Rfam assigns this 104-nucleotide sequence from Paenibacillus catalpae to the family "Purine riboswitch aptamer".
[Rfam]
RNA sequence: AAUGCUUUUUUAAAUGCAACUCAUAUAAUCUUGGGGAUAUGGCCCAAAAGUUUCUACCGGAUAACCAUUGCAACUAUCCGACUAUGAGUGAUUCGCUUUUCACG
Numbered sequence: 001a002a003u004g005c006u007u008u009u010u011u012a013a014a015u016g017c018a019a020c021u022c023a024u025a026u027a028a029u030c031u032u033g034g035g036g037a038u039a040u041g042g043c044c045c046a047a048a049a050g051u052u053u054c055u056a057c058c059g060g061a062u063a064a065c066c067a068u069u070g071c072a073a074c075u076a077u078c079c080g081a082c083u084a085u086g087a088g089u090g091a092u093u094c095g096c097u098u099u100u101c102a103c104g
Stems, first nucleotide, its partner, number of pairs: 019089007029049001031047005058080006
It scores 74 bits against the family's covariance model.